A member of the RNA family "mir-875 microRNA precursor family" from Nothoprocta ornata, 73 nucleotides long. The literature on the family includes a 2010 paper in Genes Dev by Chiang et al., "Mammalian microRNAs: experimental evaluation of novel and previously annotated genes". Rfam 15.1 lists 202 matches to the family in 202 species. The base pairs follow the family's consensus structure, which was predicted with RNAalifold.

RNA sequence: UAGUGGUACAAUACCUCAGUCUUUGCAGGUGUUCUCUAAAUUCACCUGCAGGCACUGAGGUUGAGUUUCACUG
Numbered sequence: 001u002a003g004u005g006g007u008a009c010a011a012u013a014c015c016u017c018a019g020u021c022u023u024u025g026c027a028g029g030u031g032u033u034c035u036c037u038a039a040a041u042u043c044a045c046c047u048g049c050a051g052g053c054a055c056u057g058a059g060g061u062u063g064a065g066u067u068u069c070a071c072u073g
Stems, first nucleotide, its partner, number of pairs: 003071004008066002013061008022052002025049007